mir-384 microRNA precursor family: a 63-nucleotide RNA sequence from Canis lupus. Gene Ontology terms of the family: RISC complex and miRNA-mediated post-transcriptional gene silencing.

RNA sequence: UGUAAACAAUUCCUAGGCAAUGUGUAUAAUGUUUGUAAGUCAUUCCUAGAAAUUGUUCACAAU
Numbered sequence: 001u002g003u004a005a006a007c008a009a010u011u012c013c014u015a016g017g018c019a020a021u022g023u024g025u026a027u028a029a030u031g032u033u034u035g036u037a038a039g040u041c042a043u044u045c046c047u048a049g050a051a052a053u054u055g056u057u058c059a060c061a062a063u
Base pairs, nucleotide, nucleotide: 001061002060003059005057006056007055008054009053010052011051013049014048015047016046017045025037026036027035
The source organism's lineage runs through Eukaryota, Teleostomi, Tetrapoda, Laurasiatheria and Canis lupus.